[Rfam]
RNA: 23S methyl RNA motif
RNA sequence: CCUUAAUUUAUUUCAAUCACACCUGUUAUGAUUAAAGUGAAUUAAGCCCGCAACUGAAUUUCUUGCUGAGAUGACUCCGAGGAAUUCAGUUUUUUU
Numbered sequence: 001c002c003u004u005a006a007u008u009u010a011u012u013u014c015a016a017u018c019a020c021a022c023c024u025g026u027u028a029u030g031a032u033u034a035a036a037g038u039g040a041a042u043u044a045a046g047c048c049c050g051c052a053a054c055u056g057a058a059u060u061u062c063u064u065g066c067u068g069a070g071a072u073g074a075c076u077c078c079g080a081g082g083a084a085u086u087c088a089g090u091u092u093u094u095u096u
Base pairs, nucleotide, nucleotide: 002046003045004044005043006042007041008040009039010038011037012036013035015033016032017031018030019029052091053090054089055088056087057086058085059084060083061082062081063080064079065078068077069076070075